This 436-nucleotide RNA sequence from Seongchinamella unica belongs to the Rfam family "cspA thermoregulator". The family's consensus secondary structure is taken from published work. Taxonomically the source falls in Seongchinamella (Bacteria, Pseudomonadota, Gammaproteobacteria, Halieaceae). For this family Rfam cites "The cspA mRNA is a thermosensor that modulates translation of the cold-shock protein CspA" (Giuliodori et al., Mol Cell, 2010). Gene Ontology terms of the family: regulation of translation and response to temperature stimulus. The family has 15 seed sequences and 2,094 matches in Rfam 15.1.
[Rfam]
RNA sequence: GUCUGCAGAUAGUCUAUACUUUGCACUCAGCUAGAAAUUUAGUCUCUUUUUAUACAUUCUCCCGUACGUCGCAUUUGUUGUUCUUCGUCCUGUAGUUGUUAAAUAUUUGUCUGUUUUUCCCGCUGUCAUGCCCUAACAAGGCACUUUUAUAUUUUUUUCUACAGGAUAUCUGUUAUGUCUAAUGUUACUACUGGCACUGUAAAGUGGUUCAACGAGUCGAAAGGCUUUGGUUUUAUCGAGCAGGAAUCUGGCCCCGAUGUAUUUGCACACUUCAGUGCAAUCUCCGGUUCCGGCUUCAAGACCCUCGCCGAAGGUCAGGCUGUUGAGUUCACCGUAACUCAGGGCCAGAAAGGCCCCCAGGCGGAGAACAUUGUCGCGAUCUAACGAUUGCUAGCAAUGCUUCUGAAAAGGCAGGCCUCACGGCCUGCCUUUUUUU
Numbered sequence: 001g002u003c004u005g006c007a008g009a010u011a012g013u014c015u016a017u018a019c020u021u022u023g024c025a026c027u028c029a030g031c032u033a034g035a036a037a038u039u040u041a042g043u044c045u046c047u048u049u050u051u052a053u054a055c056a057u058u059c060u061c062c063c064g065u066a067c068g069u070c071g072c073a074u075u076u077g078u079u080g081u082u083c084u085u086c087g088u089c090c091u092g093u094a095g096u097u098g099u100u101a102a103a104u105a106u107u108u109g110u111c112u113g114u115u116u117u118u119c120c121c122g123c124u125g126u127c128a129u130g131c132c133c134u135a136a137c138a139a140g141g142c143a144c145u146u147u148u149a150u151a152u153u154u155u156u157u158u159c160u161a162c163a164g165g166a167u168a169u170c171u172g173u174u175a176u177g178u179c180u181a182a183u184g185u186u187a188c189u190a191c192u193g194g195c196a197c198u199g200u201a202a203a204g205u206g207g208u209u210c211a212a213c214g215a216g217u218c219g220a221a222a223g224g225c226u227u228u229g230g231u232u233u234u235a236u237c238g239a240g241c242a243g244g245a246a247u248c249u250g251g252c253c254c255c256g257a258u259g260u261a262u263u264u265g266c267a268c269a270c271u272u273c274a275g276u277g278c279a280a281u282c283u284c285c286g287g288u289u290c291c292g293g294c295u296u297c298a299a300g301a302c303c304c305u306c307g308c309c310g311a312a313g314g315u316c317a318g319g320c321u322g323u324u325g326a327g328u329u330c331a332c333c334g335u336a337a338c339u340c341a342g343g344g345c346c347a348g349a350a351a352g353g354c355c356c357c358c359a360g361g362c363g364g365a366g367a368a369c370a371u372u373g374u375c376g377c378g379a380u381c382u383a384a385c386g387a388u389u390g391c392u393a394g395c396a397a398u399g400c401u402u403c404u405g406a407a408a409a410g411g412c413a414g415g416c417c418u419c420a421c422g423g424c425c426u427g428c429c430u431u432u433u434u435u436u
Stems, first nucleotide, its partner, number of pairs: 001014001003012003021243002024240001026238001034234002041232004046224004055219001059216001063214003068210001071208001072206001076177003080173002089165007098119001101116001130142003179194003183190001247336001249334003256264002269323002276317002278314001282307001286303001291300001342357003359382003362378002364375002386400001387398001389396002406433012